[Rfam]
Nucleotides: 074
Base pairs, nucleotide, nucleotide: 010026011025012024013023016065017064018063019062020061021060045055046054047053
Number, partner (000 for none) and nucleotide at each position: 001000u002000c003000u004000a005000g006000g007000a008000c009000a010026g011025g012024g013023a014000a015000u016065g017064a018063g019062g020061u021060u022000c023013u024012c025011c026010c027000u028000u029000g030000g031000u032000u033000c034000a035000u036000a037000c038000c039000u040000a041000a042000a043000c044000u045055g046054c047053u048000u049000a050000c051000a052000a053047a054046g055045c056000u057000g058000a059000u060021g061020a062019c063018u064017u065016c066000u067000g068000u069000u070000u071000u072000u073000u074000a
The record is a 74-nucleotide RNA sequence from Enterococcus canis, which matches "Fluoride riboswitch aptamer (crcB RNA motif)" in Rfam. The match comes from Rfam's covariance-model search (45 bits).